[Rfam]
Nucleotides: 128
Stems, first nucleotide, its partner, number of pairs: 001055005007049003011045001014040002017037001019035002026031001064125002068121001070119004080107001082105001085102004
Number, partner (000 for none) and nucleotide at each position: 001055u002054g003053u004052g005051u006000g007049u008048g009047u010000g011045u012000g013000u014040g015039u016000g017037u018000g019035u020034g021000c022000g023000u024000u025000u026031u027000a028000u029000u030000u031026g032000c033000a034020c035019a036000a037017a038000g039015a040014c041000u042000c043000a044000u045011g046000g047009a048008c049007a050000a051005g052004c053003a054002c055001a056000a057000a058000a059000a060000g061000c062000a063000a064125a065124u066000c067000a068121u069000c070119u071118u072117u073116u074000g075000c076000a077000a078000c079000a080107u081000a082105g083000a084000a085102u086101u087100u088099a089000c090000u091000g092000u093000u094000c095000a096000g097000g098000a099088u100087g101086a102085g103000c104000c105082u106000g107080g108000a109000u110000a111000c112000a113000u114000a115000a116073a117072a118071g119070a120000a121068g122000g123000a124065a125064u126000a127000c128000u